RNA: L31-Gammaproteobacteria ribosomal protein leader
RNA sequence: CGCGUGGUGUCCGACGGAAAACACGGUUGGAUAGCGACGCGGCCUAAACAGAGGU
Numbered sequence: 001c002g003c004g005u006g007g008u009g010u011c012c013g014a015c016g017g018a019a020a021a022c023a024c025g026g027u028u029g030g031a032u033a034g035c036g037a038c039g040c041g042g043c044c045u046a047a048a049c050a051g052a053g054g055u
Stems, first nucleotide, its partner, number of pairs: 001041005007035002011030004015025001